[Rfam]
RNA sequence: UUAACCAGCGAGGGGUGCUUGUGGAGUGUCGUCCCAGAGAGACUGUCUUUGUGGGUAUGGCGAUCAUUCCAGGGCUGAGAUCAUACCCUUUCUACCUGAUCCGGUUCGUACCGGCGGAGGGACUGCUGUGUACUAAAAGA
Number, nucleotide and partner (000 for none) at each position: 001u000002u000003a000004a000005c000006c128007a127008g126009c125010g124011a089012g088013g087014g086015g000016u083017g075018c074019u073020u072021g000022u000023g000024g000025a000026g000027u000028g000029u000030c000031g000032u000033c000034c000035c000036a000037g000038a000039g000040a000041g000042a000043c000044u000045g000046u000047c000048u000049u000050u000051g000052u000053g000054g000055g000056u000057a000058u000059g000060g000061c000062g000063a000064u000065c000066a000067u000068u000069c000070c000071a000072g020073g019074g018075c017076u000077g000078a000079g000080a000081u000082c000083a016084u000085a000086c014087c013088c012089u011090u000091u000092c000093u000094a000095c120096c119097u118098g000099a000100u000101c114102c113103g112104g111105u000106u000107c000108g000109u000110a000111c104112c103113g102114g101115c000116g000117g000118a097119g096120g095121g000122a000123c000124u010125g009126c008127u007128g006129u000130g000131u000132a000133c000134u000135a000136a000137a000138a000139g000140a000

The family of this 140-nucleotide RNA is "TPP riboswitch aptamer (THI element)". The family's consensus secondary structure is taken from published work.